[Rfam]
A member of the RNA family "Bacterial large subunit ribosomal RNA" from Pseudomonas aeruginosa, 587 nucleotides of a longer RNA. For this family Rfam cites "The comparative RNA web (CRW) site: an online database of comparative sequence and structure information for ribosomal, intron, and other RNAs" (Cannone et al., BMC Bioinformatics, 2002). Rfam's curators put it in the seed alignment. The source organism's lineage runs through Bacteria, Pseudomonadati, Gammaproteobacteria, Pseudomonas and Pseudomonas aeruginosa.
RNA sequence: UCCGCGGCUAGACGGAAAGACCCCGUGAACCUUUACUGUAGCUUUGCACUGGACUUUGAGCCUGCUUGUGUAGGAUAGGUGGGAGGCUUUGAAGCGUGGACGCCAGUUCGCGUGGAGCCAUCCUUGAAAUACCACCCUGGCAUGCUUGAGGUUCUAACUCUGGUCCGUAAUCCGGAUCGAGGACAGUGUAUGGUGGGCAGUUUGACUGGGGCGGUCUCCUCCUAAAGAGUAACGGAGGAGUACGAAGGUGCGCUCAGACCGGUCGGAAAUCGGUCGCAGAGUAUAAAGGCAAAAGCGCGCUUGACUGCGAGACAGACACGUCGAGCAGGUACGAAAGUAGGUCUUAGUGAUCCGGUGGUUCUGUAUGGAAGGGCCAUCGCUCAACGGAUAAAAGGUACUCCGGGGAUAACAGGCUGAUACCGCCCAAGAGUUCAUAUCGACGGCGGUGUUUGGCACCUCGAUGUCGGCUCAUCACAUCCUGGGGCUGAAGCCGGUCCCAAGGGUAUGGCUGUUCGCCAUUUAAAGUGGUACGCGAGCUGGGUUUAGAACGUCGUGAGACAGUUCGGUCCCUAUCUGCCGUGGACGUU
Numbered sequence: 001u002c003c004g005c006g007g008c009u010a011g012a013c014g015g016a017a018a019g020a021c022c023c024c025g026u027g028a029a030c031c032u033u034u035a036c037u038g039u040a041g042c043u044u045u046g047c048a049c050u051g052g053a054c055u056u057u058g059a060g061c062c063u064g065c066u067u068g069u070g071u072a073g074g075a076u077a078g079g080u081g082g083g084a085g086g087c088u089u090u091g092a093a094g095c096g097u098g099g100a101c102g103c104c105a106g107u108u109c110g111c112g113u114g115g116a117g118c119c120a121u122c123c124u125u126g127a128a129a130u131a132c133c134a135c136c137c138u139g140g141c142a143u144g145c146u147u148g149a150g151g152u153u154c155u156a157a158c159u160c161u162g163g164u165c166c167g168u169a170a171u172c173c174g175g176a177u178c179g180a181g182g183a184c185a186g187u188g189u190a191u192g193g194u195g196g197g198c199a200g201u202u203u204g205a206c207u208g209g210g211g212c213g214g215u216c217u218c219c220u221c222c223u224a225a226a227g228a229g230u231a232a233c234g235g236a237g238g239a240g241u242a243c244g245a246a247g248g249u250g251c252g253c254u255c256a257g258a259c260c261g262g263u264c265g266g267a268a269a270u271c272g273g274u275c276g277c278a279g280a281g282u283a284u285a286a287a288g289g290c291a292a293a294a295g296c297g298c299g300c301u302u303g304a305c306u307g308c309g310a311g312a313c314a315g316a317c318a319c320g321u322c323g324a325g326c327a328g329g330u331a332c333g334a335a336a337g338u339a340g341g342u343c344u345u346a347g348u349g350a351u352c353c354g355g356u357g358g359u360u361c362u363g364u365a366u367g368g369a370a371g372g373g374c375c376a377u378c379g380c381u382c383a384a385c386g387g388a389u390a391a392a393a394g395g396u397a398c399u400c401c402g403g404g405g406a407u408a409a410c411a412g413g414c415u416g417a418u419a420c421c422g423c424c425c426a427a428g429a430g431u432u433c434a435u436a437u438c439g440a441c442g443g444c445g446g447u448g449u450u451u452g453g454c455a456c457c458u459c460g461a462u463g464u465c466g467g468c469u470c471a472u473c474a475c476a477u478c479c480u481g482g483g484g485c486u487g488a489a490g491c492c493g494g495u496c497c498c499a500a501g502g503g504u505a506u507g508g509c510u511g512u513u514c515g516c517c518a519u520u521u522a523a524a525g526u527g528g529u530a531c532g533c534g535a536g537c538u539g540g541g542u543u544u545a546g547a548a549c550g551u552c553g554u555g556a557g558a559c560a561g562u563u564c565g566g567u568c569c570c571u572a573u574c575u576g577c578c579g580u581g582g583a584c585g586u587u
Base pairs, nucleotide, nucleotide: 001583002582003581004580005579006578007577008576010575011574012573014570015569022404023403024402025401027400028399029396030395031394032393033392035201036200037199038198042193043192045190046189047188048187051154052153053152054151055150056149057148058147059146060145061144063142064141065140066139068137078136079135080134081133082132085119086118087117094113095112096111097110098109099108100107101106158181159180160179162178163177164176165175166174167173204216205215206214207213217239218238219237220236221235222234240385242342243341248300249299250298251297252296253295254280255279257275258274259273260272261271262270281290282289305328306327307326308325311322312321313320330339331338332337353379354378355377356376357375358374359373361372362371413454414453415452417451418448419447420446421445422444423443424442428438429437465540466538467537468536469535470532471529472528473527474526475525478503479502481498482497483496484495485494486493505519506518507517508516509515546564547563548562549561550559551558552557